[Rfam]
RNA sequence: GGCUGGUCCAAAGGCAGUGAGUUAUAGCACUUGAUUGUUCACAGUCAGUUACAGAUCCAACUCCUUGUUCUACUCUUUCCCCCCCCCCCUUAUCACUAUUGCACUUCAUCAUUCUUUA
Numbered sequence: 001g002g003c004u005g006g007u008c009c010a011a012a013g014g015c016a017g018u019g020a021g022u023u024a025u026a027g028c029a030c031u032u033g034a035u036u037g038u039u040c041a042c043a044g045u046c047a048g049u050u051a052c053a054g055a056u057c058c059a060a061c062u063c064c065u066u067g068u069u070c071u072a073c074u075c076u077u078u079c080c081c082c083c084c085c086c087c088c089c090u091u092a093u094c095a096c097u098a099u100u101g102c103a104c105u106u107c108a109u110c111a112u113u114c115u116u117u118a
Stems, first nucleotide, its partner, number of pairs: 001114002004111004010106002014102002016097005044079001047076002
RNA: Y RNA
Organism: Microcebus murinus